[Rfam]
RNA sequence: AUUUCAGUACUUUGUAAGUCGCUUUGGAUAAAAGCCUCUGCUAAAUGACUAAAA
Numbered sequence: 001a002u003u004u005c006a007g008u009a010c011u012u013u014g015u016a017a018g019u020c021g022c023u024u025u026g027g028a029u030a031a032a033a034g035c036c037u038c039u040g041c042u043a044a045a046u047g048a049c050u051a052a053a054a
Stems, first nucleotide, its partner, number of pairs: 013043001014041003021035005

Record summary:
This 54-nucleotide sequence from Sinocyclocheilus anshuiensis belongs to the Rfam family "UnaL2 LINE 3' element". Taxonomically the source falls in Sinocyclocheilus (Eukaryota, Metazoa, Vertebrata, Cypriniphysae). It is annotated as a cis-regulatory element. A reference for the family is Baba et al. (2004), "Solution structure of an RNA stem-loop derived from the 3' conserved region of eel LINE UnaL2", RNA.